[Rfam]
RNA: tRNA
Organism: Corynebacterium incognitum
RNA sequence: GCCUCUUUAGCUCAAUUGGUAGAGCAACCGGCUUUUAACCGGUGGGUCACUGGUUCAAUUCCAGUAAGGGGCA
Numbered sequence: 001g002c003c004u005c006u007u008u009a010g011c012u013c014a015a016u017u018g019g020u021a022g023a024g025c026a027a028c029c030g031g032c033u034u035u036u037a038a039c040c041g042g043u044g045g046g047u048c049a050c051u052g053g054u055u056c057a058a059u060u061c062c063a064g065u066a067a068g069g070g071g072c073a
Base pairs, nucleotide, nucleotide: 001072002071003070004069005068006067007066010025011024012023013022027043028042029041030040031039049065050064051063052062053061
Dot-bracket structure: (((((((..((((........)))).(((((.......))))).....(((((.......)))))))))))).